[Rfam]
Bacterial RNase P class A: a 351-nucleotide RNA from Ectothiorhodospira magna. Rfam classes the family as a ribozyme. Its Rfam clan is "RNaseP clan". It scores 329 bits against the family's covariance model. Gene Ontology terms of the family: ribonuclease P activity, tRNA processing and dimeric ribonuclease P complex.
RNA sequence: GGAGUCGGCCAGACAGUCGCUGCGGCCCCCGAGGUCGUGGAGGAAAGUCCGGGCUCCCCAGGGCAGAGCGCCAGGUAACGCCUGGGCGGCGCGAGCCGACGGAAAGUGCCACAGAAAUGAUACCGCCGAUGGCCUUUGGGCACAGGUAAGGGUGAAAUGGUGCGGUAAGAGCGCACCGCACGGGUGGCAACACCCCGUGGCAGGGCAAACCCCGCUCGGAGCAAGGCCAAAUAGGGGUGCAUCGGUGUGGCCCGCACUGCACCCGGGUAGGCUGCUUGAGGUCCAUGGUGACGUGGGUCCCAGAUGAAUGACUGUCCCCGACAGAACCCGGCUUAUCGGCCGGCUCCUCCC
Numbered sequence: 001g002g003a004g005u006c007g008g009c010c011a012g013a014c015a016g017u018c019g020c021u022g023c024g025g026c027c028c029c030c031g032a033g034g035u036c037g038u039g040g041a042g043g044a045a046a047g048u049c050c051g052g053g054c055u056c057c058c059c060a061g062g063g064c065a066g067a068g069c070g071c072c073a074g075g076u077a078a079c080g081c082c083u084g085g086g087c088g089g090c091g092c093g094a095g096c097c098g099a100c101g102g103a104a105a106g107u108g109c110c111a112c113a114g115a116a117a118u119g120a121u122a123c124c125g126c127c128g129a130u131g132g133c134c135u136u137u138g139g140g141c142a143c144a145g146g147u148a149a150g151g152g153u154g155a156a157a158u159g160g161u162g163c164g165g166u167a168a169g170a171g172c173g174c175a176c177c178g179c180a181c182g183g184g185u186g187g188c189a190a191c192a193c194c195c196c197g198u199g200g201c202a203g204g205g206c207a208a209a210c211c212c213c214g215c216u217c218g219g220a221g222c223a224a225g226g227c228c229a230a231a232u233a234g235g236g237g238u239g240c241a242u243c244g245g246u247g248u249g250g251c252c253c254g255c256a257c258u259g260c261a262c263c264c265g266g267g268u269a270g271g272c273u274g275c276u277u278g279a280g281g282u283c284c285a286u287g288g289u290g291a292c293g294u295g296g297g298u299c300c301c302a303g304a305u306g307a308a309u310g311a312c313u314g315u316c317c318c319c320g321a322c323a324g325a326a327c328c329c330g331g332c333u334u335a336u337c338g339g340c341c342g343g344c345u346c347c348u349c350c351c
Stems, first nucleotide, its partner, number of pairs: 001347010011336001012316007020040008045334003049331005054221004061253004066217005071085005086100001087098004101212002106210002108206003123151002125147003130142002133139001159177006178201001179199005184193003225273004235264006244258005280299008